Shown here is a 105-nucleotide sequence from Prunus avium, a member of the family "MIR6274 microRNA precursor family". NCBI's taxonomy places the organism under Eukaryota, Gunneridae, fabids, Amygdaleae, Prunus. The match comes from Rfam's covariance-model search (88 bits).
[Rfam]
RNA sequence: GGAUAACAUUGUUUUGCUAUCUCCGGUCAAUAAUACAAUAACACAUGAAAAAGUUAUCUUACGUGUCAUUGCAUUAUUAGCCGGGGAUAGCAAAAAGUGAUAUCC
Numbered sequence: 001g002g003a004u005a006a007c008a009u010u011g012u013u014u015u016g017c018u019a020u021c022u023c024c025g026g027u028c029a030a031u032a033a034u035a036c037a038a039u040a041a042c043a044c045a046u047g048a049a050a051a052a053g054u055u056a057u058c059u060u061a062c063g064u065g066u067c068a069u070u071g072c073a074u075u076a077u078u079a080g081c082c083g084g085g086g087a088u089a090g091c092a093a094a095a096a097g098u099g100a101u102a103u104c105c
Stems, first nucleotide, its partner, number of pairs: 002104004012095009022085006029078006036071004041066004046061003050057001
Rfam links the family to the GO terms miRNA-mediated post-transcriptional gene silencing and RISC complex.